Shown here is a 60-nucleotide RNA sequence from Pelotomaculum schinkii, a member of the family "Na+ riboswitch aptamer (DUF1646)". The source organism's lineage runs through Bacteria, Bacillota, Clostridia, Desulfotomaculaceae and Pelotomaculum. Its family is annotated with sodium ion binding and regulation of gene expression in the Gene Ontology.
RNA sequence: UGUUGGACGGACCUGAAAGGUCCGUUUUCAAGGAACUCAAGGCUUCUGGGGUGGGAGGUC
Numbered sequence: 001u002g003u004u005g006g007a008c009g010g011a012c013c014u015g016a017a018a019g020g021u022c023c024g025u026u027u028u029c030a031a032g033g034a035a036c037u038c039a040a041g042g043c044u045u046c047u048g049g050g051g052u053g054g055g056a057g058g059u060c
Stems, first nucleotide, its partner, number of pairs: 003031003006026008041060007